[Rfam]
RNA sequence: CGCCGUCCGCGUGACUGGCGAUCACAGGGAGCACCCUGAGGGAGCGCGGACGUCAUGAGCCGUUCGCCUGGGCGCCCCAC
Numbered sequence: 001c002g003c004c005g006u007c008c009g010c011g012u013g014a015c016u017g018g019c020g021a022u023c024a025c026a027g028g029g030a031g032c033a034c035c036c037u038g039a040g041g042g043a044g045c046g047c048g049g050a051c052g053u054c055a056u057g058a059g060c061c062g063u064u065c066g067c068c069u070g071g072g073c074g075c076c077c078c079a080c
Base pairs, nucleotide, nucleotide: 004052005051006050007049008048009047010046011045012044015041016040017068018067019066020065021064026037027036028035029034057075059073060072061071
A member of the RNA family "ZMP/ZTP riboswitch aptamer (pfl RNA motif)" from Caulobacter sp. K31, 80 nucleotides long. Rfam links the family to the GO terms regulation of purine nucleotide biosynthetic process and one-carbon metabolic process. Taxonomically the source falls in Caulobacter (Bacteria, Pseudomonadati, Pseudomonadota, Caulobacteraceae). The sequence is in the family's curated seed alignment.